Shown here is a 70-nucleotide sequence from Acanthochromis polyacanthus, a member of the family "mir-551 microRNA precursor family". The base pairs follow the family's consensus structure, which was predicted with RNAalifold. The organism belongs to Acanthochromis, within Eukaryota. Rfam 15.1 lists 1,097 matches to the family in 627 species. The match comes from Rfam's covariance-model search (64 bits).
[Rfam]
RNA sequence: UGCCCUCAGAAACUAAGUGUGGGUGUGGCCUGAGAAAGAUAUGGCGACCCAUCCUUAGUUUCUGAGGUCC
Number, nucleotide and partner (000 for none) at each position: 001u000002g069003c000004c067005c066006u065007c064008a000009g062010a061011a060012a059013c058014u057015a000016a055017g054018u000019g000020u000021g050022g049023g048024u047025g000026u000027g000028g045029c044030c043031u000032g000033a000034g000035a000036a000037a000038g000039a000040u000041a000042u000043g030044g029045c028046g000047a024048c023049c022050c021051a000052u000053c000054c017055u016056u000057a014058g013059u012060u011061u010062c009063u000064g007065a006066g005067g004068u000069c002070c000